[Rfam]
RNA sequence: AAGCGAAGGACCCAGCAGGGAAGCGAGUAAUGCUCAUGAAAUGAGGCUUCUCUAACAAUUUUUUAUUAACCUUCGUAGAGUUUAGUUUCCAAGAGAGCGUCGAUGUUCUAUUUGUUCUUCGUGGAUCGUCAUGUGUUCUUGGUGUAUAGUU
Numbered sequence: 001a002a003g004c005g006a007a008g009g010a011c012c013c014a015g016c017a018g019g020g021a022a023g024c025g026a027g028u029a030a031u032g033c034u035c036a037u038g039a040a041a042u043g044a045g046g047c048u049u050c051u052c053u054a055a056c057a058a059u060u061u062u063u064u065a066u067u068a069a070c071c072u073u074c075g076u077a078g079a080g081u082u083u084a085g086u087u088u089c090c091a092a093g094a095g096a097g098c099g100u101c102g103a104u105g106u107u108c109u110a111u112u113u114g115u116u117c118u119u120c121g122u123g124g125a126u127c128g129u130c131a132u133g134u135g136u137u138c139u140u141g142g143u144g145u146a147u148a149g150u151u
Base pairs, nucleotide, nucleotide: 003076004075005074006073007072008071009070011020012019013018025052026051027050033045034044035043036042037041089142090141091140092139093138094137102130103129105127107125108124109123110122111121
RNA: Small nucleolar RNA snoR145